[Rfam]
RNA sequence: CCGCAUUCUGAAACCCUCCUGGUGGCCUCGGCCCUGGCCGCCAGGAUAAGAAAGAAUGCCAGAGGAAAAGGGCGAUCAUCCAAAACGUGGAGCUCCGCCCGUGGCUCGCCGUUAUUUCACGUCCUCGACACU
Numbered sequence: 001c002c003g004c005a006u007u008c009u010g011a012a013a014c015c016c017u018c019c020u021g022g023u024g025g026c027c028u029c030g031g032c033c034c035u036g037g038c039c040g041c042c043a044g045g046a047u048a049a050g051a052a053a054g055a056a057u058g059c060c061a062g063a064g065g066a067a068a069a070g071g072g073c074g075a076u077c078a079u080c081c082a083a084a085a086c087g088u089g090g091a092g093c094u095c096c097g098c099c100c101g102u103g104g105c106u107c108g109c110c111g112u113u114a115u116u117u118c119a120c121g122u123c124c125u126c127g128a129c130a131c132u
Stems, first nucleotide, its partner, number of pairs: 003059004009051001017046006024039003064132002070126003074122001084113004090107001092105002096101001
Rfam assigns this 132-nucleotide RNA sequence from Aythya fuligula to the family "Small nucleolar RNA SNORA14".
The family has 18 seed sequences and 848 matches in Rfam 15.1.
ACA14 is a member of the H/ACA class of snoRNA that guide the sites of modification of uridines to pseudouridines.
NCBI's taxonomy places the organism under Eukaryota, Craniata, Gnathostomata, Euteleostomi, Aythya.
Rfam links the family to the GO terms RNA processing and nucleolus.